[Rfam]
RNA: Metazoan signal recognition particle RNA
Organism: Schistosoma mattheei
RNA sequence: GCUGGGCGUGGUGGCAUGCGCCUGUAAUCUAGUUACUUGGAGGCAAGGGUGCGGGGUUUCAUGGGACCGGGAGUUCUGGCAUAUGGGUGCUCAUGUUGGUCGGGCUUCCACGUUAAACACGGCACCGAUAUGGAUGACCUGUUGGAGGGUGAAUUGUUUAGGUCGUCUAAGGAGGGGCUGACCGGUCCAGGGGGAAACCCAGCAGACAAAAGUCCCCGCGUGGUGCGGUAGCGGGAGAGCACCUGUGAAUGGUGUCCAUCUGAUAGCUCGGUUGGCGCAUGAAGAUUCAAU
Number, nucleotide and partner (000 for none) at each position: 001g044002c043003u042004g023005g022006g021007c020008g019009u018010g017011g000012u000013g000014g000015c000016a000017u010018g009019c008020g007021c006022c005023u004024g000025u000026a000027a000028u041029c040030u039031a000032g000033u000034u000035a000036c000037u000038u000039g030040g029041a028042g003043g002044c001045a000046a000047g000048g000049g291050u290051g000052c000053g287054g286055g000056g000057u284058u283059u282060c281061a280062u279063g278064g000065g273066a272067c271068c270069g269070g268071g267072a000073g000074u000075u000076c266077u265078g264079g000080c262081a261082u000083a259084u258085g257086g256087g255088u254089g000090c000091u252092c251093a250094u249095g000096u247097u000098g000099g000100u000101c245102g244103g243104g242105c000106u000107u239108c235109c234110a000111c233112g232113u231114u230115a229116a000117a000118c225119a224120c223121g000122g221123c220124a000125c218126c165127g164128a163129u162130a000131u160132g159133g158134a157135u156136g155137a154138c000139c000140u151141g150142u149143u148144g000145g000146a000147g000148g143149g142150u141151g140152a000153a000154u137155u136156g135157u134158u133159u132160a131161g000162g129163u128164c127165g126166u172167c171168u000169a000170a000171g167172g166173a000174g216175g215176g214177g213178c212179u211180g000181a000182c000183c000184g000185g207186u206187c205188c000189a000190g000191g000192g199193g198194g000195a000196a000197a000198c193199c192200c000201a000202g000203c000204a000205g187206a186207c185208a000209a000210a000211a179212g178213u177214c176215c175216c174217c000218g125219c000220g123221u122222g000223g120224u119225g118226c000227g000228g000229u115230a114231g113232c112233g111234g109235g108236a000237g000238a000239g107240c000241a000242c104243c103244u102245g101246u000247g096248a000249a094250u093251g092252g091253u000254g088255u087256c086257c085258a084259u083260c000261u081262g080263a000264u078265a077266g076267c071268u070269c069270g068271g067272u066273u065274g000275g000276c000277g000278c063279a062280u061281g060282a059283a058284g057285a000286u054287u053288c000289a000290a050291u049